[Rfam]
RNA sequence: CUAUAUACUGAAUGGCCAGAUUAUUAUGAUUUUUGAACACAUAAUAAUCUGGCCACUCAGUAUAUAU
Numbered sequence: 001c002u003a004u005a006u007a008c009u010g011a012a013u014g015g016c017c018a019g020a021u022u023a024u025u026a027u028g029a030u031u032u033u034u035g036a037a038c039a040c041a042u043a044a045u046a047a048u049c050u051g052g053c054c055a056c057u058c059a060g061u062a063u064a065u066a067u
Stems, first nucleotide, its partner, number of pairs: 004064008013055005019049010